[Rfam]
Nucleotides: 127
Base pairs, nucleotide, nucleotide: 001055002054003053004052005051007049008048009047011045015041018038019037020036021035022034027032066122067121068120072117073116074115075114081106082105083104084103086101087100088099089098090097
Number, partner (000 for none) and nucleotide at each position: 001055a002054g003053c004052a005051c006000a007049u008048a009047c010000a011045u012000c013000u014000u015041g016000a017000g018038u019037u020036u021035g022034u023000u024000u025000u026000u027032g028000u029000u030000g031000a032027u033000g034022a035021c036020a037019a038018a039000a040000a041015c042000u043000u044000a045011a046000a047009g048008u049007a050000a051005g052004u053003g054002c055001u056000a057000a058000g059000a060000a061000u062000a063000a064000a065000c066122c067121c068120u069000u070000c071000a072117c073116u074115u075114g076000c077000a078000a079000c080000c081106c082105a083104c084103a085000a086101c087100u088099c089098a090097u091000c092000a093000u094000c095000a096000u097090a098089u099088g100087a101086g102000c103084u104083g105082u106081g107000u108000u109000a110000c111000u112000u113000c114075u115074g116073g117072g118000a119000a120068g121067g122066g123000a124000c125000a126000a127000u
Small nucleolar RNA SNORA40: a 127-nucleotide RNA from Pelusios castaneus. The organism belongs to Pelusios, within Eukaryota. About the family: The snoRNA ACA 40 belongs to the H/ACA family of snoRNAs and guides the pseudouridylation of 28S rRNA subunit at position U4565. NB This family has a high threshold value to exclude a large number of closely related sequences that do not appear to have conserved H and ACA boxes, and may be pseudogenes. Its family is annotated with RNA processing and nucleolus in the Gene Ontology. A reference for the family is Ofengand and Bakin (1997), "Mapping to nucleotide resolution of pseudouridine residues in large subunit ribosomal RNAs from representative eukaryotes, prokaryotes, archaebacteria, mitochondria and chloroplasts", J Mol Biol.